ZMP/ZTP riboswitch aptamer (pfl RNA motif): a 92-nucleotide RNA sequence. Its family is annotated with regulation of purine nucleotide biosynthetic process and one-carbon metabolic process in the Gene Ontology. The base pairs follow the family's consensus structure, which is taken from published work.
RNA sequence: AAACGACCAUACGACUGACGGAAGUGGAGCAACCACAUGGAGUGUGGCCGGACGUAAACCGCGUCCUCUUGCCGACCGUCUGGGCACACUGA
Numbered sequence: 001a002a003a004c005g006a007c008c009a010u011a012c013g014a015c016u017g018a019c020g021g022a023a024g025u026g027g028a029g030c031a032a033c034c035a036c037a038u039g040g041a042g043u044g045u046g047g048c049c050g051g052a053c054g055u056a057a058a059c060c061g062c063g064u065c066c067u068c069u070u071g072c073c074g075a076c077c078g079u080c081u082g083g084g085c086a087c088a089c090u091g092a
Stems, first nucleotide, its partner, number of pairs: 005049001007047006015039001017080005024036004070086004